[Rfam]
RNA sequence: UUUAUCCAAUCACCUUGGAGAUGAGAAGCAAUUUCCCAUUGGUAGCAAAUGGUUAUCCAUUAAGCGGGGGAAUAGUAUU
Numbered sequence: 001u002u003u004a005u006c007c008a009a010u011c012a013c014c015u016u017g018g019a020g021a022u023g024a025g026a027a028g029c030a031a032u033u034u035c036c037c038a039u040u041g042g043u044a045g046c047a048a049a050u051g052g053u054u055a056u057c058c059a060u061u062a063a064g065c066g067g068g069g070g071a072a073u074a075g076u077a078u079u
Base pairs, nucleotide, nucleotide: 034069035068036067037066038060039059041057042056043055044054045053046052

The record is a 79-nucleotide RNA, which matches "Plastid-rps12 3UTR RNA" in Rfam.
About the family: Plastid rpl20 is a non-coding RNA (ncRNA) recognised in plastids. It was found in the three prime untranslated region (3UTR) of rps12 gene, its 3UTR location sugest a role in transcript maduration.
Rfam classes the family as a cis-regulatory element.
Rfam 15.1 lists 1,710 matches to the family in 1,426 species.